[Rfam]
RNA sequence: GGAAUCUUUUUCGAUUUAAAACACUCAUGUCGAUAAAAUAGUUUGAAUUCCCU
Numbered sequence: 001g002g003a004a005u006c007u008u009u010u011u012c013g014a015u016u017u018a019a020a021a022c023a024c025u026c027a028u029g030u031c032g033a034u035a036a037a038a039u040a041g042u043u044u045g046a047a048u049u050c051c052c053u
Stems, first nucleotide, its partner, number of pairs: 011033005017027001

Rfam assigns this 53-nucleotide sequence from Arachis hypogaea to the family "Plastid-atpF group II-D1 intron". For this family Rfam cites "Retrograde signaling in plants: A critical review focusing on the GUN pathway and beyond" (Richter et al., Plant Commun, 2023). The match comes from Rfam's covariance-model search (53 bits). Plastid atpF is a non-coding RNA (ncRNA) recognised in plastids. The base pairs follow the family's consensus structure, which was predicted with LocARNA. The family has 49 seed sequences and 1,372 matches in Rfam 15.1. The source organism's lineage runs through Eukaryota, eudicotyledons, Pentapetalae, fabids and Arachis.